[Rfam]
RNA sequence: UGUCAUCCCAGUGCCCAGACACUGGGAUCCAGAAAACUUAACUUUAAAUGAGCGCACCAGGUGGCUGUAUAAUGAAAACUGGAUCCCAGUGUCAAGCACUGGGAUGACA
Numbered sequence: 001u002g003u004c005a006u007c008c009c010a011g012u013g014c015c016c017a018g019a020c021a022c023u024g025g026g027a028u029c030c031a032g033a034a035a036a037c038u039u040a041a042c043u044u045u046a047a048a049u050g051a052g053c054g055c056a057c058c059a060g061g062u063g064g065c066u067g068u069a070u071a072a073u074g075a076a077a078a079c080u081g082g083a084u085c086c087c088a089g090u091g092u093c094a095a096g097c098a099c100u101g102g103g104a105u106g107a108c109a
Stems, first nucleotide, its partner, number of pairs: 001109014018093015
About this RNA: A member of the RNA family "Wolbachia sRNA 46" from Trichonephila clavata, 109 nucleotides long. The source organism's lineage runs through Eukaryota, Metazoa, Bilateria, Nephilidae and Trichonephila. On this family, see Mayoral et al., Proc Natl Acad Sci U S A 2014: "Wolbachia small noncoding RNAs and their role in cross-kingdom communications". It scores 73 bits against the family's covariance model. Pairs were carried over by alignment from the consensus structure.